A member of the RNA family "TPP riboswitch aptamer (THI element)" from Ramlibacter ginsenosidimutans, 110 nucleotides long.
NCBI's taxonomy places the organism under Bacteria, Pseudomonadota, Betaproteobacteria, Burkholderiales, Ramlibacter.
It scores 57 bits against the family's covariance model.
Vitamin B(1) in its active form thiamin pyrophosphate (TPP) is an essential coenzyme that is synthesised by coupling of pyrimidine and thiazole moieties in bacteria.
RNA sequence: CCUCUCGCUCCGGGGUGCGAUCGGCCGCAAGGCCGAUCGCUGAGAUGGCAGACCAAACCCGUGAACUUGAACCGGUUCGUACCGGCGUAAGAAGAGCUGACAGGAUGGCA
Numbered sequence: 001c002c003u004c005u006c007g008c009u010c011c012g013g014g015g016u017g018c019g020a021u022c023g024g025c026c027g028c029a030a031g032g033c034c035g036a037u038c039g040c041u042g043a044g045a046u047g048g049c050a051g052a053c054c055a056a057a058c059c060c061g062u063g064a065a066c067u068u069g070a071a072c073c074g075g076u077u078c079g080u081a082c083c084g085g086c087g088u089a090a091g092a093a094g095a096g097c098u099g100a101c102a103g104g105a106u107g108g109c110a
Stems, first nucleotide, its partner, number of pairs: 007097004011061004016055001017040009047054002066091004072085004